The record is a 115-nucleotide RNA sequence from Malus domestica, which matches "Small nucleolar RNA Z278" in Rfam. It scores 39 bits against the family's covariance model. The family has 7 seed sequences and 1,130 matches in Rfam 15.1. It is annotated as a C/D-box small nucleolar RNA. The literature on the family includes a 2003 paper in Nucleic Acids Res by Chen et al., "The high diversity of snoRNAs in plants: identification and comparative study of 120 snoRNA genes from Oryza sativa".

RNA sequence: GCCUGUGAUGAUUCAAUCCGCUUUUUUUAGGUGUAGUGGAGCUGAGAUCUUGUUUACAAGGAGAACCCCUCGACGAAGCUACAUUGCAUAUGAUAUUAAUGGAUUUAACAGAGGU
Numbered sequence: 001g002c003c004u005g006u007g008a009u010g011a012u013u014c015a016a017u018c019c020g021c022u023u024u025u026u027u028u029a030g031g032u033g034u035a036g037u038g039g040a041g042c043u044g045a046g047a048u049c050u051u052g053u054u055u056a057c058a059a060g061g062a063g064a065a066c067c068c069c070u071c072g073a074c075g076a077a078g079c080u081a082c083a084u085u086g087c088a089u090a091u092g093a094u095a096u097u098a099a100u101g102g103a104u105u106u107a108a109c110a111g112a113g114g115u
Stems, first nucleotide, its partner, number of pairs: 001115003048061005